Rfam assigns this 129-nucleotide RNA sequence from Allobosea thiooxidans to the family "TPP riboswitch aptamer (THI element)". Rfam describes the family as follows. Vitamin B(1) in its active form thiamin pyrophosphate (TPP) is an essential coenzyme that is synthesised by coupling of pyrimidine and thiazole moieties in bacteria.

RNA sequence: GGCCGUUCCCAGGGGGGCCUCGCUAGGAGGCUGAGAUUCCGCCGGCUGGGCUUUCGAGCCCGGCGACGCUGUGACCCUACGAACCUGAUCCGGAUCAUGCCGGCGUAGGGAUGCGGGACAUGCGGCCAA
Numbered sequence: 001g002g003c004c005g006u007u008c009c010c011a012g013g014g015g016g017g018c019c020u021c022g023c024u025a026g027g028a029g030g031c032u033g034a035g036a037u038u039c040c041g042c043c044g045g046c047u048g049g050g051c052u053u054u055c056g057a058g059c060c061c062g063g064c065g066a067c068g069c070u071g072u073g074a075c076c077c078u079a080c081g082a083a084c085c086u087g088a089u090c091c092g093g094a095u096c097a098u099g100c101c102g103g104c105g106u107a108g109g110g111a112u113g114c115g116g117g118a119c120a121u122g123c124g125g126c127c128a129a
Stems, first nucleotide, its partner, number of pairs: 007118004011078004016072001017031005038071001084109004090103004
Pairs were carried over by alignment from the consensus structure, which is taken from published work.